[Rfam]
RNA sequence: AAGAGAAGAGAACGUUCGCUGUUGAUGUAGUCGAAUUCAUUUAAUCUUUAUAUCACAGUGGCUGUUCUUUUUUGUU
Numbered sequence: 001a002a003g004a005g006a007a008g009a010g011a012a013c014g015u016u017c018g019c020u021g022u023u024g025a026u027g028u029a030g031u032c033g034a035a036u037u038c039a040u041u042u043a044a045u046c047u048u049u050a051u052a053u054c055a056c057a058g059u060g061g062c063u064g065u066u067c068u069u070u071u072u073u074g075u076u
Base pairs, nucleotide, nucleotide: 004073005072007070008069009068010067011066012065013064016061017060018059019058020057021056023055024054026052027051028050029049